[Rfam]
RNA: mir-203 microRNA precursor family
Organism: Aquarana catesbeiana
RNA sequence: GUCUGCCUGGCUCAGUGGUUCUUAACAGUUCAACAGUUCUCUAUCGAAAUUGUGAAAUGUUUAGGACCACUUGAUCAGGA
Numbered sequence: 001g002u003c004u005g006c007c008u009g010g011c012u013c014a015g016u017g018g019u020u021c022u023u024a025a026c027a028g029u030u031c032a033a034c035a036g037u038u039c040u041c042u043a044u045c046g047a048a049a050u051u052g053u054g055a056a057a058u059g060u061u062u063a064g065g066a067c068c069a070c071u072u073g074a075u076c077a078g079g080a
Stems, first nucleotide, its partner, number of pairs: 014071006021064002024061004029056004